[Rfam]
About this RNA: A member of the RNA family "Ribosomal protein L10 leader" from Planococcaceae bacterium Storch 2/2-2, 129 nucleotides long. The organism belongs to Caryophanaceae, within Bacteria. Rfam's curators write: This family is a putative r-protein leader autoregulatory structure found in B. subtilis and other low-GC Gram-positive bacteria. It is located in the 5' untranslated regions of mRNAs encoding ribosomal proteins L10 and L12 (rplJ-rplL). A Rho-independent transcription terminator structure that is probably involved in regulation is included at the 3' end. Rfam classes the family as a cis-regulatory leader.
RNA sequence: UUAUAUAUUUAGUUUGUACCGAAGACAGUAGGGGUGGCUUGCCACAUAAUGAUCCUACCGAGGACGAAGCGUUCUUUAUUAAACGACUUUUAUACCCUCAUGUCUACAUGGGGGUUUUUCGGUAUGCGG
Numbered sequence: 001u002u003a004u005a006u007a008u009u010u011a012g013u014u015u016g017u018a019c020c021g022a023a024g025a026c027a028g029u030a031g032g033g034g035u036g037g038c039u040u041g042c043c044a045c046a047u048a049a050u051g052a053u054c055c056u057a058c059c060g061a062g063g064a065c066g067a068a069g070c071g072u073u074c075u076u077u078a079u080u081a082a083a084c085g086a087c088u089u090u091u092a093u094a095c096c097c098u099c100a101u102g103u104c105u106a107c108a109u110g111g112g113g114g115u116u117u118u119u120c121g122g123u124a125u126g127c128g129g
Stems, first nucleotide, its partner, number of pairs: 028058006034045003095114008
Dot-bracket structure: ...........................(((((((((......))).......))))))....................................((((((((....))))))))...............